The family of this 76-nucleotide sequence from Alligator mississippiensis is "Mammalian CPEB3 ribozyme". The match comes from Rfam's covariance-model search (57 bits). Rfam links the family to the GO term RNA nuclease activity. The mammalian CPEB3 ribozyme is a self cleaving RNA located in the second intron of the CPEB3 gene which belongs to a family of genes regulating messenger RNA polyadenylation. This ribozyme is highly conserved and found only in mammals. The family's consensus secondary structure is taken from published work.
[Rfam]
RNA sequence: GGUGGCAUGUUCGAGGCCAUAGCAGAAGCAUUCACGGUGCAGCCUGUCAGAGUCCAGUGAAUCUGCAAAUUCUGUU
Numbered sequence: 001g002g003u004g005g006c007a008u009g010u011u012c013g014a015g016g017c018c019a020u021a022g023c024a025g026a027a028g029c030a031u032u033c034a035c036g037g038u039g040c041a042g043c044c045u046g047u048c049a050g051a052g053u054c055c056a057g058u059g060a061a062u063c064u065g066c067a068a069a070u071u072c073u074g075u076u
Base pairs, nucleotide, nucleotide: 015044016043017042021076022075023074024073025072026071027070028040029039030038048065049064050063051062053060054059